[Rfam]
RNA sequence: CCAGAGGGUUGGGCGGCCGCCGGUGUCACGUUUCGCGUGAUGCGGGAGGAAAGUCCGGGCUCCAAGAAGCAACGGUGCCGGGUAACGCCCGGCGGCGGAUGAAAGUCCGUCAGGGAAAGUGCCACAGAAAGCAUACCGCCCGGCGGGCCGGCAACGGCUCCGGGUCAGGGCGAAAGGGUGCGGUAAGAGCGCACCGCGGGCCGGGCAACCGGAACGGCAUGGCAAACCCCACCGGGAGCAAGACCGAAUAGGGACGGCAUAUGGGCUGGCUUCGCCCCGUCGUCCGGGUUGGUUGCUUGAGGUUGCGGGUAACCGCAGCCCUAGAGGAAUGGUCGCCCAUCCGGUGCCGGGGUUUCCCGGCAUCGGUGGACAGAACCCGGCUUAUAGACCCUCUGGCGUU
Numbered sequence: 001c002c003a004g005a006g007g008g009u010u011g012g013g014c015g016g017c018c019g020c021c022g023g024u025g026u027c028a029c030g031u032u033u034c035g036c037g038u039g040a041u042g043c044g045g046g047a048g049g050a051a052a053g054u055c056c057g058g059g060c061u062c063c064a065a066g067a068a069g070c071a072a073c074g075g076u077g078c079c080g081g082g083u084a085a086c087g088c089c090c091g092g093c094g095g096c097g098g099a100u101g102a103a104a105g106u107c108c109g110u111c112a113g114g115g116a117a118a119g120u121g122c123c124a125c126a127g128a129a130a131g132c133a134u135a136c137c138g139c140c141c142g143g144c145g146g147g148c149c150g151g152c153a154a155c156g157g158c159u160c161c162g163g164g165u166c167a168g169g170g171c172g173a174a175a176g177g178g179u180g181c182g183g184u185a186a187g188a189g190c191g192c193a194c195c196g197c198g199g200g201c202c203g204g205g206c207a208a209c210c211g212g213a214a215c216g217g218c219a220u221g222g223c224a225a226a227c228c229c230c231a232c233c234g235g236g237a238g239c240a241a242g243a244c245c246g247a248a249u250a251g252g253g254a255c256g257g258c259a260u261a262u263g264g265g266c267u268g269g270c271u272u273c274g275c276c277c278c279g280u281c282g283u284c285c286g287g288g289u290u291g292g293u294u295g296c297u298u299g300a301g302g303u304u305g306c307g308g309g310u311a312a313c314c315g316c317a318g319c320c321c322u323a324g325a326g327g328a329a330u331g332g333u334c335g336c337c338c339a340u341c342c343g344g345u346g347c348c349g350g351g352g353u354u355u356c357c358c359g360g361c362a363u364c365g366g367u368g369g370a371c372a373g374a375a376c377c378c379g380g381c382u383u384a385u386a387g388a389c390c391c392u393c394u395g396g397c398g399u400u
Stems, first nucleotide, its partner, number of pairs: 001396010011385001012337007020046002023043006051383003055380005060238004068272002073234005078092005093113001094111007114229002119227002121223003136169002138165006145158001177195006196218001197216002201212004242294004252285006263277004301320008
Source information: This 400-nucleotide RNA from Sphingomonas sp. KC8 belongs to the Rfam family "Bacterial RNase P class A". The family's RNA type in Rfam is ribozyme. The match comes from Rfam's covariance-model search (289 bits). The source organism's lineage runs through Bacteria, Pseudomonadati, Sphingomonadales, Sphingomonadaceae and Sphingomonas. For this family Rfam cites "Ribonuclease P: unity and diversity in a tRNA processing ribozyme" (Frank and Pace, Annu Rev Biochem, 1998).